[Rfam]
Rfam assigns this 215-nucleotide RNA sequence from Pan troglodytes to the family "Small nucleolar RNA U3". The literature on the family includes a 1997 paper in Nucleic Acids Res by Zwieb, "The uRNA database". Its family is annotated with RNA processing and nucleolus in the Gene Ontology. The base pairs follow the family's consensus structure, which is taken from published work. By type it is a C/D-box small nucleolar RNA.
RNA sequence: AAGACUAUACUUUCAGGGAUCAUUUCUAUAGCUUGCCACUAGAGAAGCUUUUCUGGACGUGUAGAGCACCGGCAACUGCGAGGAGACGCAGUGUUCUCUCCUGAGCCUGAAACCAGCAAGUUGGUGUUGCUUUGCUGCAGCUGCUGUUUUCCAUUGAUGGAUGAUUCUUCCCUUCCUCUGGGAGAGCAAGCGGGAGAGGACGCAAUCUGAGUGCU
Numbered sequence: 001a002a003g004a005c006u007a008u009a010c011u012u013u014c015a016g017g018g019a020u021c022a023u024u025u026c027u028a029u030a031g032c033u034u035g036c037c038a039c040u041a042g043a044g045a046a047g048c049u050u051u052u053c054u055g056g057a058c059g060u061g062u063a064g065a066g067c068a069c070c071g072g073c074a075a076c077u078g079c080g081a082g083g084a085g086a087c088g089c090a091g092u093g094u095u096c097u098c099u100c101c102u103g104a105g106c107c108u109g110a111a112a113c114c115a116g117c118a119a120g121u122u123g124g125u126g127u128u129g130c131u132u133u134g135c136u137g138c139a140g141c142u143g144c145u146g147u148u149u150u151c152c153a154u155u156g157a158u159g160g161a162u163g164a165u166u167c168u169u170c171c172c173u174u175c176c177u178c179u180g181g182g183a184g185a186g187c188a189a190g191c192g193g194g195a196g197a198g199g200a201c202g203c204a205a206u207c208u209g210a211g212u213g214c215u
Stems, first nucleotide, its partner, number of pairs: 002040002006035002010031002015027004049065003054061001075215001077213003091203012105162001116151001118149001122146004126141005165189002167186003173183004